[Rfam]
Bacterial RNase P class A: a 296-nucleotide RNA from Chryseobacterium sp. FH1. The organism belongs to Chryseobacterium, within Bacteria. It scores 206 bits against the family's covariance model. The family's consensus secondary structure is taken from published work.
RNA sequence: AGAGAAGCGUGACUUGUUGAUCCAGAUUCAUUUUGGGUAGGAAAGUCCGGACACCAUAGGGCAACAUAGCGGAUAACAUCCGUCAUUCGUGAGAGUAGGACAAGUGCAACAGAAAGCAAGUACAGUUCGGCUGUAGUGAAACCAGGUAAACUCUAUGCGGUGCAAUGCUAAGUAUAUCAUCAGUUAAGUUCGGCUCGGGCAUUGAUGAGGGGUAAGCAGCUAAAGUUUUAUAGUAAUAUAGAGCGCAGAUAAAUAACAAGUCUCGACAGAAUCCGGCUUACAGCGCUUCUCUUUUU
Numbered sequence: 001a002g003a004g005a006a007g008c009g010u011g012a013c014u015u016g017u018u019g020a021u022c023c024a025g026a027u028u029c030a031u032u033u034u035g036g037g038u039a040g041g042a043a044a045g046u047c048c049g050g051a052c053a054c055c056a057u058a059g060g061g062c063a064a065c066a067u068a069g070c071g072g073a074u075a076a077c078a079u080c081c082g083u084c085a086u087u088c089g090u091g092a093g094a095g096u097a098g099g100a101c102a103a104g105u106g107c108a109a110c111a112g113a114a115a116g117c118a119a120g121u122a123c124a125g126u127u128c129g130g131c132u133g134u135a136g137u138g139a140a141a142c143c144a145g146g147u148a149a150a151c152u153c154u155a156u157g158c159g160g161u162g163c164a165a166u167g168c169u170a171a172g173u174a175u176a177u178c179a180u181c182a183g184u185u186a187a188g189u190u191c192g193g194c195u196c197g198g199g200c201a202u203u204g205a206u207g208a209g210g211g212g213u214a215a216g217c218a219g220c221u222a223a224a225g226u227u228u229u230a231u232a233g234u235a236a237u238a239u240a241g242a243g244c245g246c247a248g249a250u251a252a253a254u255a256a257c258a259a260g261u262c263u264c265g266a267c268a269g270a271a272u273c274c275g276g277c278u279u280a281c282a283g284c285g286c287u288u289c290u291c292u293u294u295u296u
Base pairs, nucleotide, nucleotide: 001292002291003290004289005288006287007286008285009284010283011281012261013260014259015258016257017256018255020038021037022036023035024034025033026032043279044278045277047276048275049274050273051272052162053161054160055159059196060195061194062193065157066156067155068154069083070082071081072080073079084098085096086095087094088093099153100152104151105150106147107146121135122134123133124132125131126130166218167217168216169215177208178207179206180205181204188200189199190198191197225244226243227242228241229240230239231238232237